[Rfam]
RNA sequence: UAAUAUUAAUAGCAAAAUAUUCGAAAGAUUAUUACGCAAAAGCUUGAAUCUAAGGAGUUUUAAUAUUCUAUGAUUGUCAAGCCUGCCUCA
Numbered sequence: 001u002a003a004u005a006u007u008a009a010u011a012g013c014a015a016a017a018u019a020u021u022c023g024a025a026a027g028a029u030u031a032u033u034a035c036g037c038a039a040a041a042g043c044u045u046g047a048a049u050c051u052a053a054g055g056a057g058u059u060u061u062a063a064u065a066u067u068c069u070a071u072g073a074u075u076g077u078c079a080a081g082c083c084u085g086c087c088u089c090a
Base pairs, nucleotide, nucleotide: 012037013036017032018031019030021028022027040084042082043081045079046078047077048074049073050072055068056067057066058065
This 90-nucleotide RNA sequence from Halanaerobium hydrogeniformans belongs to the Rfam family "c-di-GMP-I riboswitch aptamer". Pairs were carried over by alignment from the consensus structure, which is taken from published work. The organism belongs to Halanaerobium, within Bacteria. Gene Ontology term of the family: cyclic-di-GMP binding.